[Rfam]
The family of this 131-nucleotide sequence from Rhodoferax sediminis is "ZMP/ZTP riboswitch aptamer (pfl RNA motif)". Pairs were carried over by alignment from the consensus structure, which is taken from published work. The source organism's lineage runs through Bacteria, Pseudomonadati, Betaproteobacteria, Burkholderiales and Rhodoferax.
RNA sequence: CACGCUGUACGCGACUGGCGAUAGGCGCGGCGCCCAAACAGGGCCGCUGGCGCUGACGUGGGACACCACCGGGAAGCGUACCGCCCGCGUCUUUUGACAACGGCGUUCAGCCGUUCGCCUGGGCAGCCCUU
Numbered sequence: 001c002a003c004g005c006u007g008u009a010c011g012c013g014a015c016u017g018g019c020g021a022u023a024g025g026c027g028c029g030g031c032g033c034c035c036a037a038a039c040a041g042g043g044c045c046g047c048u049g050g051c052g053c054u055g056a057c058g059u060g061g062g063a064c065a066c067c068a069c070c071g072g073g074a075a076g077c078g079u080a081c082c083g084c085c086c087g088c089g090u091c092u093u094u095u096g097a098c099a100a101c102g103g104c105g106u107u108c109a110g111c112c113g114u115u116c117g118c119c120u121g122g123g124c125a126g127c128c129c130u131u
Stems, first nucleotide, its partner, number of pairs: 004084002007081006015073002017119005058069004108126001110124003
Dot-bracket structure: ...((.((((((..(([[[[[....................................((((....))))..))..)))))).)).......................(.(((..]]]]]..))).).....